The family of this 95-nucleotide sequence is "Plastid-rps12 3UTR RNA". The family has 1,299 seed sequences and 1,710 matches in Rfam 15.1. The family's consensus secondary structure was predicted with LocARNA. From the family's description: Plastid rpl20 is a non-coding RNA (ncRNA) recognised in plastids. It was found in the three prime untranslated region (3UTR) of rps12 gene, its 3UTR location sugest a role in transcript maduration. For this family Rfam cites "Retrograde signaling in plants: A critical review focusing on the GUN pathway and beyond" (Richter et al., Plant Commun, 2023).
[Rfam]
RNA sequence: GGUUUCCGUUGGUGCAAAUCCAAUCAUGAAUUUAAGAUGAGAACAACUUCCCCAUUGGUAGCAAAUGCUUAUCCAUUAAGCGGGGAAAAUCCUAU
Numbered sequence: 001g002g003u004u005u006c007c008g009u010u011g012g013u014g015c016a017a018a019u020c021c022a023a024u025c026a027u028g029a030a031u032u033u034a035a036g037a038u039g040a041g042a043a044c045a046a047c048u049u050c051c052c053c054a055u056u057g058g059u060a061g062c063a064a065a066u067g068c069u070u071a072u073c074c075a076u077u078a079a080g081c082g083g084g085g086a087a088a089a090u091c092c093u094a095u
Base pairs, nucleotide, nucleotide: 009023010022011021012020050085051084052083053082054076055075057073058072059071060070061069